mir-393 microRNA precursor family: a 108-nucleotide RNA sequence from Populus tomentosa. The family has 27 seed sequences and 1,052 matches in Rfam 15.1. Pairs were carried over by alignment from the consensus structure. A reference for the family is Kruszka et al. (2012), "Role of microRNAs and other sRNAs of plants in their changing environments", J Plant Physiol. Its family is annotated with RISC complex and miRNA-mediated post-transcriptional gene silencing in the Gene Ontology. It scores 87 bits against the family's covariance model.

RNA sequence: GUUGGAGUGUUCCAAAGGGAUCGCAUUGAUCUAAUGACUUUCGAUGUCUAUAUGAUGUUAAUGUUCAGUCAUUUCAUUGGAUCAUGCGAUCCCUUAGGAAUUUUCCAG
Numbered sequence: 001g002u003u004g005g006a007g008u009g010u011u012c013c014a015a016a017g018g019g020a021u022c023g024c025a026u027u028g029a030u031c032u033a034a035u036g037a038c039u040u041u042c043g044a045u046g047u048c049u050a051u052a053u054g055a056u057g058u059u060a061a062u063g064u065u066c067a068g069u070c071a072u073u074u075c076a077u078u079g080g081a082u083c084a085u086g087c088g089a090u091c092c093c094u095u096a097g098g099a100a101u102u103u104u105c106c107a108g
Stems, first nucleotide, its partner, number of pairs: 002108005009101005015095007023087004028083005036075001